Rfam assigns this 115-nucleotide RNA from Olea europaea to the family "Small nucleolar RNA Z152/R70/R12/".

RNA sequence: CGUGCUAUGAAGAGAUAAAGCACAAACGGUGUUUUUGGGCAGUGGAUUAAGAAGAGCUUAUGAACUCUUCUCCGUGAGCCUAAUUAACUAACGACUUCUCCUUCAUCUGAGCAUA
Numbered sequence: 001c002g003u004g005c006u007a008u009g010a011a012g013a014g015a016u017a018a019a020g021c022a023c024a025a026a027c028g029g030u031g032u033u034u035u036u037g038g039g040c041a042g043u044g045g046a047u048u049a050a051g052a053a054g055a056g057c058u059u060a061u062g063a064a065c066u067c068u069u070c071u072c073c074g075u076g077a078g079c080c081u082a083a084u085u086a087a088c089u090a091a092c093g094a095c096u097u098c099u100c101c102u103u104c105a106u107c108u109g110a111g112c113a114u115a
Stems, first nucleotide, its partner, number of pairs: 002114004

Background:
A reference for the family is Barneche et al. (2001), "Identification of 66 box C/D snoRNAs in Arabidopsis thaliana: extensive gene duplications generated multiple isoforms predicting new ribosomal RNA 2'-O-methylation sites", J Mol Biol. The family's RNA type in Rfam is C/D-box small nucleolar RNA. Taxonomically the source falls in Olea europaea (Eukaryota, Spermatophyta, Magnoliopsida, lamiids). It scores 67 bits against the family's covariance model.